[Rfam]
RNA sequence: AAAGUUUCCUACGCAACCGCCAUGGACUGGUUCAUUGCAGUCUGUUUCGCUUUC
Numbered sequence: 001a002a003a004g005u006u007u008c009c010u011a012c013g014c015a016a017c018c019g020c021c022a023u024g025g026a027c028u029g030g031u032u033c034a035u036u037g038c039a040g041u042c043u044g045u046u047u048c049g050c051u052u053u054c
Base pairs, nucleotide, nucleotide: 002053003052008049011046013045014044016041017040019038020037022035023034024033025032026031